Rfam assigns this 286-nucleotide part of an RNA from Basidiobolus meristosporus to the family "Eukaryotic large subunit ribosomal RNA". A search with the family's covariance model found it, with a score of 3310 bits. Pairs were carried over by alignment from the consensus structure, which is taken from published work. The source organism's lineage runs through Eukaryota, Opisthokonta, Fungi, Basidiobolomycota and Basidiobolus meristosporus.
RNA sequence: GAGUCUAACAAAUAUGCGAGUAUUUGGGUGGCAAACCCAUAUGCGCAAUGAAAGUGAAUGUAGGUGGGAUCCCGGUUACGGGAGCACCAUCGACCGAUCUGGAUUAAUUUAUGAUAGAUUUGAGUAAGAGCAUAUCUGUUGGGACCCGAAAGAUGGUGAACUAUGCCUGAAUAGGGUGAAGCCAGAGGAAACUCUGGUGGAGGCUCGUAGCGAUUCUGACGUGCAAAUCGAUCGUCAAAUUUGGGUAUAGGGGCGAAAGACUAAUCGAACCAUCUAGUAGCUGGUU
Numbered sequence: 001g002a003g004u005c006u007a008a009c010a011a012a013u014a015u016g017c018g019a020g021u022a023u024u025u026g027g028g029u030g031g032c033a034a035a036c037c038c039a040u041a042u043g044c045g046c047a048a049u050g051a052a053a054g055u056g057a058a059u060g061u062a063g064g065u066g067g068g069a070u071c072c073c074g075g076u077u078a079c080g081g082g083a084g085c086a087c088c089a090u091c092g093a094c095c096g097a098u099c100u101g102g103a104u105u106a107a108u109u110u111a112u113g114a115u116a117g118a119u120u121u122g123a124g125u126a127a128g129a130g131c132a133u134a135u136c137u138g139u140u141g142g143g144a145c146c147c148g149a150a151a152g153a154u155g156g157u158g159a160a161c162u163a164u165g166c167c168u169g170a171a172u173a174g175g176g177u178g179a180a181g182c183c184a185g186a187g188g189a190a191a192c193u194c195u196g197g198u199g200g201a202g203g204c205u206c207g208u209a210g211c212g213a214u215u216c217u218g219a220c221g222u223g224c225a226a227a228u229c230g231a232u233c234g235u236c237a238a239a240u241u242u243g244g245g246u247a248u249a250g251g252g253g254c255g256a257a258a259g260a261c262u263a264a265u266c267g268a269a270c271c272a273u274c275u276a277g278u279a280g281c282u283g284g285u286u
Base pairs, nucleotide, nucleotide: 005142006141007140008139009138010137012135013134014133015132016131017130020044021043022042025039026038027037028036029035048055049054063091064090065089066088067087070083071082072081093125094124095122096121097120098118099117100116105111145284146283148281152274153273154272155271156270157269161250162249163248164247165246166245167244168243169242170241171240172238174206175205176204177203181198182197183196184195185194186193187192210235211234212233213232215231216230218229219228252262253261